[Rfam]
Small Cajal body specific RNA 4: a 129-nucleotide RNA sequence from Neopipo cinnamomea. Gene Ontology terms of the family: Cajal body, RNA processing and nucleolus. From the family's description: scaRNAs are a specific class of small nuclear RNAs which localise to the Cajal bodies and guide the modification of RNA polymerase II transcribed spliceosomal RNAs U1, U2, U4, U5 and U12. ACA26 belongs to the H/ACA box class of guide RNAs as it has the predicted hairpin-hinge-hairpin-tail structure, conserved H/ACA-box motifs and is found associated with GAR1. Clan: SCARNA4 clan.
RNA sequence: ACCGGAGGUCCAAAGAGACCGAGUCUGGCGAGUGAGACUCGGGUUCCAGUGACCUCCUGAGAGCAAAGGGGUGGCGAGAGCAGCCCCGGUUCGAGCCCAGCCCGGGGCUCACUGUGCCCUCUCACACUG
Numbered sequence: 001a002c003c004g005g006a007g008g009u010c011c012a013a014a015g016a017g018a019c020c021g022a023g024u025c026u027g028g029c030g031a032g033u034g035a036g037a038c039u040c041g042g043g044u045u046c047c048a049g050u051g052a053c054c055u056c057c058u059g060a061g062a063g064c065a066a067a068g069g070g071g072u073g074g075c076g077a078g079a080g081c082a083g084c085c086c087c088g089g090u091u092c093g094a095g096c097c098c099a100g101c102c103c104g105g106g107g108c109u110c111a112c113u114g115u116g117c118c119c120u121c122u123c124a125c126a127c128u129g
Base pairs, nucleotide, nucleotide: 002061003059004057005056006055007054008053009052017044019042021040022039023038024037025036026035068122069121070120071119079113080112082109083108084107085106086105087104